[Rfam]
RNA sequence: GCCGAUCCCGCCAUAGUAAUCCGGCUCAGUACGAGAGGAACCGCCGGUUCGGAUAAUUGGUAAUGCGCUCGCCUGAAAAGGCGAUGGCGCAAAGCUACCAUCCGUCGGCUAACACCUGAACGCCUCUAAGGUGGAAGCCAUGCUAGGAGCGGGGUCAUUCGUCCCAAUGACCGUCACCCGAUUACCGAUAGGCCCGGCUCGUCCGGGCUCAGGAACAUAUCCUAUGGGCUCGCCCAUGCAUGACAAUUCCACUCGCUCAUUGGGGUAGAUCCCUUGCAGACGACUUGGCUCGAACGCGGUGCUGUAAGAAGUAGAGUGGCCUUGCUGCUACGAUCUUCUGAGACUCAGCCGUUGUUCGCACGAUUUGU
Numbered sequence: 001g002c003c004g005a006u007c008c009c010g011c012c013a014u015a016g017u018a019a020u021c022c023g024g025c026u027c028a029g030u031a032c033g034a035g036a037g038g039a040a041c042c043g044c045c046g047g048u049u050c051g052g053a054u055a056a057u058u059g060g061u062a063a064u065g066c067g068c069u070c071g072c073c074u075g076a077a078a079a080g081g082c083g084a085u086g087g088c089g090c091a092a093a094g095c096u097a098c099c100a101u102c103c104g105u106c107g108g109c110u111a112a113c114a115c116c117u118g119a120a121c122g123c124c125u126c127u128a129a130g131g132u133g134g135a136a137g138c139c140a141u142g143c144u145a146g147g148a149g150c151g152g153g154g155u156c157a158u159u160c161g162u163c164c165c166a167a168u169g170a171c172c173g174u175c176a177c178c179c180g181a182u183u184a185c186c187g188a189u190a191g192g193c194c195c196g197g198c199u200c201g202u203c204c205g206g207g208c209u210c211a212g213g214a215a216c217a218u219a220u221c222c223u224a225u226g227g228g229c230u231c232g233c234c235c236a237u238g239c240a241u242g243a244c245a246a247u248u249c250c251a252c253u254c255g256c257u258c259a260u261u262g263g264g265g266u267a268g269a270u271c272c273c274u275u276g277c278a279g280a281c282g283a284c285u286u287g288g289c290u291c292g293a294a295c296g297c298g299g300u301g302c303u304g305u306a307a308g309a310a311g312u313a314g315a316g317u318g319g320c321c322u323u324g325c326u327g328c329u330a331c332g333a334u335c336u337u338c339u340g341a342g343a344c345u346c347a348g349c350c351g352u353u354g355u356u357c358g359c360a361c362g363a364u365u366u367g368u
Stems, first nucleotide, its partner, number of pairs: 004156008014145004019049001021047005050104005058097003064091005069084006107139002113133005164263007267366005272288002276284001291358006297351003301344001308338004313334001316331005